Rfam assigns this 203-nucleotide RNA sequence from Bifidobacterium dolichotidis to the family "FMN riboswitch aptamer (RFN element)".

RNA sequence: AACGUGUUUCAGGGAAGGUGCAAUUCCUUACUGGCGGUGAAUGGCAGCCAAUUAUGAAGCAUCAUGACACGGCAAAACGUGACGUGAUAGCGAAACGUGACAUGACAAAUAAUUGAGCUGUGCACAGCCCGCGACCCGCUUUUGCGGCUGAUUCGGUGAAAUUCCGAAGCCAACGGUUACAGUCCGGAUGGAAGAAACGGAGA
Numbered sequence: 001a002a003c004g005u006g007u008u009u010c011a012g013g014g015a016a017g018g019u020g021c022a023a024u025u026c027c028u029u030a031c032u033g034g035c036g037g038u039g040a041a042u043g044g045c046a047g048c049c050a051a052u053u054a055u056g057a058a059g060c061a062u063c064a065u066g067a068c069a070c071g072g073c074a075a076a077a078c079g080u081g082a083c084g085u086g087a088u089a090g091c092g093a094a095a096c097g098u099g100a101c102a103u104g105a106c107a108a109a110u111a112a113u114u115g116a117g118c119u120g121u122g123c124a125c126a127g128c129c130c131g132c133g134a135c136c137c138g139c140u141u142u143u144g145c146g147g148c149u150g151a152u153u154c155g156g157u158g159a160a161a162u163u164c165c166g167a168a169g170c171c172a173a174c175g176g177u178u179a180c181a182g183u184c185c186g187g188a189u190g191g192a193a194g195a196a197a198c199g200g201a202g203a
Base pairs, nucleotide, nucleotide: 005199006198007197008196009195010194016028017027018026030183031182032172033171034132035131036130037129136147137146152168153167154166155165156164174186175185176184
The organism belongs to Bifidobacterium, within Bacteria. It scores 87 bits against the family's covariance model. Gene Ontology term of the family: FMN binding.